[Rfam]
RNA: Mammalian CPEB3 ribozyme
Organism: Alligator sinensis
RNA sequence: UUUGCACAUUUGAGGCCACAGCUGAAGAGCUCAUGUUGUGGCCCUAUCAGAUUCCAACAAAGCUGUGAAUUCUGCU
Dot-bracket structure: ...........[.[[[[..(((.((((.(.......).)]]]]]...(((.((......)).)))....))).)))
Numbered sequence: 001u002u003u004g005c006a007c008a009u010u011u012g013a014g015g016c017c018a019c020a021g022c023u024g025a026a027g028a029g030c031u032c033a034u035g036u037u038g039u040g041g042c043c044c045u046a047u048c049a050g051a052u053u054c055c056a057a058c059a060a061a062g063c064u065g066u067g068a069a070u071u072c073u074g075c076u
Stems, first nucleotide, its partner, number of pairs: 012044001014043004020076003024072003027039001029037001048065003052061002